[Rfam]
RNA sequence: CAAAGGGAUCGGUUGGGGCACUACCCGGCAAUGUCCCAACCGUCGAAGGGCUCCAGCGCAAGCUGGGGCCCUUCACUUUUU
Numbered sequence: 001c002a003a004a005g006g007g008a009u010c011g012g013u014u015g016g017g018g019c020a021c022u023a024c025c026c027g028g029c030a031a032u033g034u035c036c037c038a039a040c041c042g043u044c045g046a047a048g049g050g051c052u053c054c055a056g057c058g059c060a061a062g063c064u065g066g067g068g069c070c071c072u073u074c075a076c077u078u079u080u081u
Base pairs, nucleotide, nucleotide: 010042011041012040013039014038015037016036017035018034047072048071049070050069051068052067053066054065056063057062
Shown here is an 81-nucleotide RNA from Tardiphaga robiniae, a member of the family "Bradyrhizobiaceae sRNA BjrC68". By type it is a small RNA.